[Rfam]
RNA sequence: GGGAGUGCAUGGGGCCCGGUGGUCCCCCCGGCCUUCAAAGCCGCGUGUGUCCCGCUUAAGGGACAGGUGGGUUCGACUCCCACACACUCCC
Numbered sequence: 001g002g003g004a005g006u007g008c009a010u011g012g013g014g015c016c017c018g019g020u021g022g023u024c025c026c027c028c029c030g031g032c033c034u035u036c037a038a039a040g041c042c043g044c045g046u047g048u049g050u051c052c053c054g055c056u057u058a059a060g061g062g063a064c065a066g067g068u069g070g071g072u073u074c075g076a077c078u079c080c081c082a083c084a085c086a087c088u089c090c091c
Base pairs, nucleotide, nucleotide: 001091002090003089004088005087006086007085011026012025013024014023015022016021028045029043030042031041032040048065049064050063051062052061068082069081070080071079

Record summary
The record is a 91-nucleotide sequence from Caldithrix abyssi, which matches "Selenocysteine transfer RNA" in Rfam. For this family Rfam cites "Eukaryotic selenocysteine tRNA has the 9/4 secondary structure" (Mizutani and Goto, FEBS Lett, 2000).